[Rfam]
RNA sequence: GUAGGAAAUCUGAUCAGUUCUCCGCACUAUGCGCAAAACUGAAAAGGUUUUUUACAG
Numbered sequence: 001g002u003a004g005g006a007a008a009u010c011u012g013a014u015c016a017g018u019u020c021u022c023c024g025c026a027c028u029a030u031g032c033g034c035a036a037a038a039c040u041g042a043a044a045a046g047g048u049u050u051u052u053u054a055c056a057g
Base pairs, nucleotide, nucleotide: 001055002054003053004052005051006050007049008048009047010046011045015041016040017039018038019037021035023033024032
RNA: mir-255 microRNA precursor family
Organism: Cylicocyclus nassatus